A member of the RNA family "c-di-AMP riboswitch aptamer (ydaO/yuaA leader)" from Streptomyces sp. Go-475, 161 nucleotides long. A search with the family's covariance model found it, with a score of 60 bits.

RNA sequence: AGCCCGCACACACUGACCCGUGUACGGCAGGAGCGGGGGACCCACAGGUACGACGCCUGUUCCGGUUCCCGGAACGGCUUGGGGUUAAGCCGCGCCUCGGCGCGGCCGGGCAUCUCCAGCCCGCACCCGACAGCUCACCUCGUAGGCGCCGGAGAGGAAUU
Numbered sequence: 001a002g003c004c005c006g007c008a009c010a011c012a013c014u015g016a017c018c019c020g021u022g023u024a025c026g027g028c029a030g031g032a033g034c035g036g037g038g039g040a041c042c043c044a045c046a047g048g049u050a051c052g053a054c055g056c057c058u059g060u061u062c063c064g065g066u067u068c069c070c071g072g073a074a075c076g077g078c079u080u081g082g083g084g085u086u087a088a089g090c091c092g093c094g095c096c097u098c099g100g101c102g103c104g105g106c107c108g109g110g111c112a113u114c115u116c117c118a119g120c121c122c123g124c125a126c127c128c129g130a131c132a133g134c135u136c137a138c139c140u141c142g143u144a145g146g147c148g149c150c151g152g153a154g155a156g157g158a159a160u161u
Base pairs, nucleotide, nucleotide: 003031004030033143034142035141036140037139038138043081044080082128083127084126090105091104092103093102108122109121110120111119
From the family's description: This family represents a conserved RNA structure found upstream of the ydaO and yuaA genes in Bacillus subtilis and related genes in other bacteria. The pairing is the family consensus, mapped onto this sequence.